[Rfam]
Rfam assigns this 139-nucleotide RNA from Peptococcaceae bacterium CEB3 to the family "Molybdenum/Tungsten riboswitch aptamer (Moco RNA motif)". Pairs were carried over by alignment from the consensus structure, which is taken from published work.

RNA sequence: CAGACAGGUGGAUUCCGAGCCCCGCUUCCUAAAGGUCGGACAGAACCCAUGGAACGGGGCCGUUUCAGAAAUGAAACCGGGGUUUGCUUAGAAAUGAGCACACCUUCCGAACUAGAAAAGGAGGCUAUACCUAGCUAUG
Numbered sequence: 001c002a003g004a005c006a007g008g009u010g011g012a013u014u015c016c017g018a019g020c021c022c023c024g025c026u027u028c029c030u031a032a033a034g035g036u037c038g039g040a041c042a043g044a045a046c047c048c049a050u051g052g053a054a055c056g057g058g059g060c061c062g063u064u065u066c067a068g069a070a071a072u073g074a075a076a077c078c079g080g081g082g083u084u085u086g087c088u089u090a091g092a093a094a095u096g097a098g099c100a101c102a103c104c105u106u107c108c109g110a111a112c113u114a115g116a117a118a119a120g121g122a123g124g125c126u127a128u129a130c131c132u133a134g135c136u137a138u139g
Stems, first nucleotide, its partner, number of pairs: 004132001011125001013123004019060006027053003034047003062077005080105004085100006106116002
A search with the family's covariance model found it, with a score of 70 bits.